The record is a 491-nucleotide RNA sequence from Hanseniaspora valbyensis, which matches "Small nucleolar RNA snR37" in Rfam.
Gene Ontology terms of the family: nucleolus and RNA processing.
Clan: SNORA64 clan.
On this family, see Schattner et al., Nucleic Acids Res 2004: "Genome-wide searching for pseudouridylation guide snoRNAs: analysis of the Saccharomyces cerevisiae genome".
It scores 67 bits against the family's covariance model.
RNA sequence: CACAUCAGUAGUGGAUAAUACUAUCUUUUUUAGAUAUAUUUUUCAUUAAUAUUUUAUAGAAACCAUAAAGUCCAAAGUGCAGUAUAUCUCAAGAGUUUACUUGGAAAAUGUUUUUAAAGUCGUUAGGCACUUGUGUCUUUUGUCUUUUAUUUUUUUCCAGGUUUAUUCAGUGUGUUAAGACUAGAUAUAAUUUUGUACACAGGGCAACAUUUUUUCAACCCAUAUAGCUGAGUCGAUAACUACAUUUUAUAUCUUUUUCUUUUUUAUUAAAGUUUAAGAAUAAAUACUUUUUUACAAGGCCUAAACAACCUUUCUUUUUCCUACAGUAUCGACUUCGUUUCUGGUUUCUUAGAGCAAAUUGUUUAUUUUUUUUAGCGAGAGAGUCUUUCCUCUGUUUAAGAGGAGAGGUGUUUGCAUGUUAUUCAGAGGAUUUUGUCAUGAAAUCUGAGAGUUUGAGUUUCCGUUGUGCCCUCUUUCGCGGUAAUACAUUU
Numbered sequence: 001c002a003c004a005u006c007a008g009u010a011g012u013g014g015a016u017a018a019u020a021c022u023a024u025c026u027u028u029u030u031u032a033g034a035u036a037u038a039u040u041u042u043u044c045a046u047u048a049a050u051a052u053u054u055u056a057u058a059g060a061a062a063c064c065a066u067a068a069a070g071u072c073c074a075a076a077g078u079g080c081a082g083u084a085u086a087u088c089u090c091a092a093g094a095g096u097u098u099a100c101u102u103g104g105a106a107a108a109u110g111u112u113u114u115u116a117a118a119g120u121c122g123u124u125a126g127g128c129a130c131u132u133g134u135g136u137c138u139u140u141u142g143u144c145u146u147u148u149a150u151u152u153u154u155u156u157c158c159a160g161g162u163u164u165a166u167u168c169a170g171u172g173u174g175u176u177a178a179g180a181c182u183a184g185a186u187a188u189a190a191u192u193u194u195g196u197a198c199a200c201a202g203g204g205c206a207a208c209a210u211u212u213u214u215u216c217a218a219c220c221c222a223u224a225u226a227g228c229u230g231a232g233u234c235g236a237u238a239a240c241u242a243c244a245u246u247u248u249a250u251a252u253c254u255u256u257u258u259c260u261u262u263u264u265u266a267u268u269a270a271a272g273u274u275u276a277a278g279a280a281u282a283a284a285u286a287c288u289u290u291u292u293u294a295c296a297a298g299g300c301c302u303a304a305a306c307a308a309c310c311u312u313u314c315u316u317u318u319u320c321c322u323a324c325a326g327u328a329u330c331g332a333c334u335u336c337g338u339u340u341c342u343g344g345u346u347u348c349u350u351a352g353a354g355c356a357a358a359u360u361g362u363u364u365a366u367u368u369u370u371u372u373u374a375g376c377g378a379g380a381g382a383g384u385c386u387u388u389c390c391u392c393u394g395u396u397u398a399a400g401a402g403g404a405g406a407g408g409u410g411u412u413u414g415c416a417u418g419u420u421a422u423u424c425a426g427a428g429g430a431u432u433u434u435g436u437c438a439u440g441a442a443a444u445c446u447g448a449g450a451g452u453u454u455g456a457g458u459u460u461c462c463g464u465u466g467u468g469c470c471c472u473c474u475u476u477c478g479c480g481g482u483a484a485u486a487c488a489u490u491u
Base pairs, nucleotide, nucleotide: 008052009051010050012048013047014043015042017040018039019038020037022036023035024034025033058349059348060347061346062345063344064343070205071204072203073202077198078197079196080195081194082193083189084188085187086186087185088184089183093168094167095166096165099162100161101160102159103158104157105156106155107154108153114149116147117146118145119144169182170181171180230335231334232333233332234331235330236329237328238327363484364483365482366481367480376478377477378476379475380474381473382472383471384408385407386406387405388404389403390402391401392400410470412468416467417466418465420463422457423456424455425454426453427452428446429445430444431443432442433441434440